Pistol ribozyme: a 78-nucleotide RNA sequence from Streptococcus sobrinus. Taxonomically the source falls in Streptococcus sobrinus (Bacteria, Bacillota, Lactobacillales, Streptococcaceae). The base pairs follow the family's consensus structure, which is taken from published work. Rfam's curators put it in the seed alignment.
RNA sequence: AGUCGUUGUGGCGACUAUAACCAAGCUCUUUAAGCCACAAGCGUUGCUGAUGAGGUUUCAUAACAUCAGCAGGUAGAG
Numbered sequence: 001a002g003u004c005g006u007u008g009u010g011g012c013g014a015c016u017a018u019a020a021c022c023a024a025g026c027u028c029u030u031u032a033a034g035c036c037a038c039a040a041g042c043g044u045u046g047c048u049g050a051u052g053a054g055g056u057u058u059c060a061u062a063a064c065a066u067c068a069g070c071a072g073g074u075a076g077a078g
Stems, first nucleotide, its partner, number of pairs: 001016004006040006026078004034042001044072008
The literature on the family includes a 2015 paper in Nat Chem Biol by Weinberg et al., "New classes of self-cleaving ribozymes revealed by comparative genomics analysis". Rfam links the family to the GO term catalytic activity.